[Rfam]
RNA sequence: GAAGGUAAAUGAUGCAAAUUGUUCUUAUCCUACACUCUGAACUGCAAUGCAGACCAUAACUCCGCUUAUUAUCUGAUGCCUUC
Numbered sequence: 001g002a003a004g005g006u007a008a009a010u011g012a013u014g015c016a017a018a019u020u021g022u023u024c025u026u027a028u029c030c031u032a033c034a035c036u037c038u039g040a041a042c043u044g045c046a047a048u049g050c051a052g053a054c055c056a057u058a059a060c061u062c063c064g065c066u067u068a069u070u071a072u073c074u075g076a077u078g079c080c081u082u083c
Stems, first nucleotide, its partner, number of pairs: 003081005
RNA: Small nucleolar RNA R16
Organism: Nelumbo nucifera